[Rfam]
RNA sequence: AUAUGUAAUUUAAUACGAACUCAUAUAAUCCUGAUAAUUUGGUUCGGGAGUUUCUACGAAGCGGCCUUAACUGCUUAGCUAUGAGUGAAUAAUUUGCUGUU
Numbered sequence: 001a002u003a004u005g006u007a008a009u010u011u012a013a014u015a016c017g018a019a020c021u022c023a024u025a026u027a028a029u030c031c032u033g034a035u036a037a038u039u040u041g042g043u044u045c046g047g048g049a050g051u052u053u054c055u056a057c058g059a060a061g062c063g064g065c066c067u068u069a070a071c072u073g074c075u076u077a078g079c080u081a082u083g084a085g086u087g088a089a090u091a092a093u094u095u096g097c098u099g100u101u
Base pairs, nucleotide, nucleotide: 019086020085021084022083023082024081025080029049030048031047032046033045034044059076060075061074062073063072064071
Dot-bracket structure: ..................(((((((...((((((.........)))))).........((((((......))))))...)))))))...............
Rfam assigns this 101-nucleotide RNA sequence from Clostridium sp. USBA 49 to the family "Purine riboswitch aptamer". The match comes from Rfam's covariance-model search (72 bits). The literature on the family includes a 2003 paper in Cell by Mandal et al., "Riboswitches Control Fundamental Biochemical Pathways in Bacillus subtilis and Other Bacteria". NCBI's taxonomy places the organism under Bacteria, Bacillati, Clostridia, Eubacteriales, Clostridium.